Rfam assigns this 65-nucleotide sequence from Acyrthosiphon pisum to the family "mir-184 microRNA precursor family".
[Rfam]
RNA sequence: CCUUAUCAUUCUUCGCCUUGUGUGCAAUUUAAACAACUGGACGGAGAACUGAUAAGGGCUGGUAU
Numbered sequence: 001c002c003u004u005a006u007c008a009u010u011c012u013u014c015g016c017c018u019u020g021u022g023u024g025c026a027a028u029u030u031a032a033a034c035a036a037c038u039g040g041a042c043g044g045a046g047a048a049c050u051g052a053u054a055a056g057g058g059c060u061g062g063u064a065u
Base pairs, nucleotide, nucleotide: 001057002056003055004054005053006052007051008050009048010047011046013045014044017040018039
A reference for the family is Chen et al. (2005), "The developmental miRNA profiles of zebrafish as determined by small RNA cloning", Genes Dev. Lineage of the source: Eukaryota > Eumetabola > Sternorrhyncha > Aphidomorpha > Acyrthosiphon.